[Rfam]
RNA sequence: UGGAAAAAUAUGCUUAAUUCCGUGAUCGGAAGCGGAGGAACCAAUUCCGGGGUGAAUCCUAUGUUAAUAGGUAGGGUUUCCUUUCGACCCGAACCCGUCAGCUAACUUCGUAAGCAUGAAGGAAAGGAUGG
Numbered sequence: 001u002g003g004a005a006a007a008a009u010a011u012g013c014u015u016a017a018u019u020c021c022g023u024g025a026u027c028g029g030a031a032g033c034g035g036a037g038g039a040a041c042c043a044a045u046u047c048c049g050g051g052g053u054g055a056a057u058c059c060u061a062u063g064u065u066a067a068u069a070g071g072u073a074g075g076g077u078u079u080c081c082u083u084u085c086g087a088c089c090c091g092a093a094c095c096c097g098u099c100a101g102c103u104a105a106c107u108u109c110g111u112a113a114g115c116a117u118g119a120a121g122g123a124a125a126g127g128a129u130g131g
Stems, first nucleotide, its partner, number of pairs: 011116004018031003032111006042049001050096003058071004074090004

The family of this 131-nucleotide RNA sequence from Desulforamulus ruminis is "c-di-AMP riboswitch aptamer (ydaO/yuaA leader)". Rfam links the family to the GO terms regulation of gene expression and cyclic-di-AMP binding. A search with the family's covariance model found it, with a score of 109 bits.